[Rfam]
RNA sequence: CGCAUUUUUUGCGCAGGGGGAGCUCGACCGGCCCGUUCAAGCGAUGAUCGCGUUUAUCGAAGAUAACCGCGGGGGCCGUGGGGUCGAGCCGAUCUGCAACGUCCUGCCGAUCGCCCCU
Numbered sequence: 001c002g003c004a005u006u007u008u009u010u011g012c013g014c015a016g017g018g019g020g021a022g023c024u025c026g027a028c029c030g031g032c033c034c035g036u037u038c039a040a041g042c043g044a045u046g047a048u049c050g051c052g053u054u055u056a057u058c059g060a061a062g063a064u065a066a067c068c069g070c071g072g073g074g075g076c077c078g079u080g081g082g083g084u085c086g087a088g089c090c091g092a093u094c095u096g097c098a099a100c101g102u103c104c105u106g107c108c109g110a111u112c113g114c115c116c117c118u
Base pairs, nucleotide, nucleotide: 016033017032019029020028080117081116082115083114090113091112093110094109096107097106098105